[Rfam]
RNA sequence: AGCACCAAAAAUCAGUAACCAUGCGACUGCUAAACUAGCCUGGGGACUACGCUUGGGUGCUAAAAUUAAAAUACGCUAUAAUGCCGCAUAUUUAACAAGAGCAUGCUAAUCCAGCCUUAGGAUGUUUGUGGCCUUGUUUUGAGACAA
Numbered sequence: 001a002g003c004a005c006c007a008a009a010a011a012u013c014a015g016u017a018a019c020c021a022u023g024c025g026a027c028u029g030c031u032a033a034a035c036u037a038g039c040c041u042g043g044g045g046a047c048u049a050c051g052c053u054u055g056g057g058u059g060c061u062a063a064a065a066u067u068a069a070a071a072u073a074c075g076c077u078a079u080a081a082u083g084c085c086g087c088a089u090a091u092u093u094a095a096c097a098a099g100a101g102c103a104u105g106c107u108a109a110u111c112c113a114g115c116c117u118u119a120g121g122a123u124g125u126u127u128g129u130g131g132c133c134u135u136g137u138u139u140u141g142a143g144a145c146a147a
Stems, first nucleotide, its partner, number of pairs: 001061006014048003019043003023039002072143001074141002078137004083132005099127006106120003
Description:
This 147-nucleotide sequence from Drosophila albomicans belongs to the Rfam family "Small nucleolar RNA psi28S-3378". The family's consensus secondary structure was predicted with CMfinder. A reference for the family is Huang et al. (2004), "Different expression strategy: multiple intronic gene clusters of box H/ACA snoRNA in Drosophila melanogaster", J Mol Biol. By type it is an H/ACA-box small nucleolar RNA. About the family: psi28S-3378 is a member of the H/ACA class of snoRNA. A search with the family's covariance model found it, with a score of 155 bits.